[Rfam]
RNA sequence: UAGAACAAUGUAGAUAAGGGAAGUCGGCAAAAUAGAUCCGUAACUUCGGGAAAAGGAUUGGCUCUAACGGUUGGGUGCAUCGGGCCUCGAUUGGAAGCCACGGAACCUAGCUGGGACUGUUUGGGGCAACUCAGACGGACUCGGCCGGAAUCUGUGUGUGGAUGAUCUUGGCUCGGCCUUCGGGCUUCCGGUGUACGCUUAACAACCAAGUUAGAACUGGUACGGACAAGGGGAAUCUGACUGUCUAAUUAAAACAUAGCAUUGCGAUGGCCAGAAAGUGGUGUUGACGCAAUGUGAUUUCUGCCCAGUGCUCUGAAUGUCAAAGUGAAGAAAUUCAACCAAGCGCGGGUAAACGGCGGGAGUAACUAUGACUCUCUUAAGGUAGCCAAAUGCCUCGUCAUCUAAUUAGUGACGCGCAUGAAUGGAUUAACGAGAUUCCCACUGUCCCUAUCUACUAUCUAGCGAAACCACAGCCAAGGGAACGGGCUUGGCAGA
Number, nucleotide and partner (000 for none) at each position: 001u461002a460003g459004a458005a000006c000007a000008a000009u000010g455011u454012a453013g452014a451015u450016a449017a000018g447019g446020g445021a000022a000023g000024u000025c000026g000027g000028c000029a000030a000031a000032a000033u000034a000035g059036a058037u057038c056039c055040g000041u000042a000043a000044c049045u000046u000047c000048g000049g044050g000051a000052a000053a000054a000055g039056g038057a037058u036059u035060g218061g217062c000063u215064c214065u213066a212067a211068c210069g207070g206071u205072u204073g203074g000075g196076u195077g194078c193079a192080u191081c190082g189083g188084g172085c171086c170087u000088c000089g167090a166091u165092u000093g000094g000095a000096a000097g159098c158099c156100a155101c154102g153103g152104a151105a000106c000107c148108u147109a000110g145111c144112u143113g142114g141115g140116a000117c138118u137119g136120u135121u134122u133123g132124g131125g130126g000127c000128a000129a000130c125131u124132c123133a122134g121135a120136c119137g118138g117139a000140c115141u114142c113143g112144g111145c110146c000147g108148g107149a000150a000151u104152c103153u102154g101155u100156g099157u000158g098159u097160g000161g000162a000163u000164g000165a091166u090167c089168u000169u000170g086171g085172c084173u000174c000175g000176g000177c000178c000179u000180u000181c000182g000183g000184g000185c000186u000187u000188c083189c082190g081191g080192u079193g078194u077195a076196c075197g000198c000199u000200u000201a000202a000203c073204a072205a071206c070207c069208a000209a000210g068211u067212u066213a065214g064215a063216a000217c061218u060219g223220g000221u000222a000223c219224g000225g000226a000227c000228a000229a000230g000231g440232g439233g438234a437235a436236u435237c434238u432239g431240a000241c000242u256243g255244u254245c000246u000247a000248a000249u000250u000251a000252a000253a000254a244255c243256a242257u000258a000259g295260c294261a293262u292263u291264g290265c289266g288267a000268u000269g000270g282271c281272c280273a279274g000275a000276a000277a000278g000279u273280g272281g271282u270283g000284u000285u000286g000287a000288c266289g265290c264291a263292a262293u261294g260295u259296g000297a000298u000299u426300u425301c424302u000303g357304c356305c355306c000307a000308g354309u353310g350311c349312u348313c347314u000315g346316a000317a000318u345319g344320u343321c000322a000323a000324a000325g000326u337327g336328a335329a334330g000331a000332a000333a000334u329335u328336c327337a326338a000339c000340c000341a000342a000343g320344c319345g318346c315347g313348g312349g311350u310351a000352a000353a309354c308355g305356g304357c303358g376359g375360g374361a373362g372363u371364a000365a000366c000367u000368a000369u000370g000371a363372c362373u361374c360375u359376c358377u381378u000379a000380a000381g377382g000383u000384a000385g000386c000387c000388a000389a000390a000391u000392g000393c000394c000395u000396c000397g413398u412399c411400a410401u409402c000403u000404a000405a000406u000407u000408a000409g401410u400411g399412a398413c397414g000415c000416g000417c000418a000419u000420g000421a000422a000423u000424g301425g300426a299427u000428u000429a000430a000431c239432g238433a000434g237435a236436u235437u234438c233439c232440c231441a000442c000443u000444g000445u020446c019447c018448c000449u016450a015451u014452c013453u012454a011455c010456u000457a000458u004459c003460u002461a001462g000463c000464g000465a000466a000467a000468c000469c000470a000471c000472a000473g000474c491475c490476a489477a488478g487479g000480g000481a000482a000483c000484g000485g000486g000487c478488u477489u476490g475491g474492c000493a000494g000495a000